[Rfam]
RNA: Small nucleolar RNA SNORD70
RNA sequence: UUGUCUGUUGUCAAUGAUGCAUUCUUGUUGGAACUGAAUCAAAAUGAUUUAAUUCAACAAUUCGUCACUACCACUGAGACAACACUGAA
Numbered sequence: 001u002u003g004u005c006u007g008u009u010g011u012c013a014a015u016g017a018u019g020c021a022u023u024c025u026u027g028u029u030g031g032a033a034c035u036g037a038a039u040c041a042a043a044a045u046g047a048u049u050u051a052a053u054u055c056a057a058c059a060a061u062u063c064g065u066c067a068c069u070a071c072c073a074c075u076g077a078g079a080c081a082a083c084a085c086u087g088a089a
Base pairs, nucleotide, nucleotide: 001089002088006084007083008082009081010080011079012078